[Rfam]
RNA sequence: GGCUGGUGCAAAGGUAGUGAGUUAUCUCACUUGAUUGUUCAGUCAGUUACAGUUAGAACUCCUUGUUCUACUACUUUCCCCCCUCUUCAUUAUUAUACUUGACUAGUCUUAA
Numbered sequence: 001g002g003c004u005g006g007u008g009c010a011a012a013g014g015u016a017g018u019g020a021g022u023u024a025u026c027u028c029a030c031u032u033g034a035u036u037g038u039u040c041a042g043u044c045a046g047u048u049a050c051a052g053u054u055a056g057a058a059c060u061c062c063u064u065g066u067u068c069u070a071c072u073a074c075u076u077u078c079c080c081c082c083c084u085c086u087u088c089a090u091u092a093u094u095a096u097a098c099u100u101g102a103c104u105a106g107u108c109u110u111a112a
Stems, first nucleotide, its partner, number of pairs: 001108007010100002014096002016091005021085001042072001045069002
RNA: Y RNA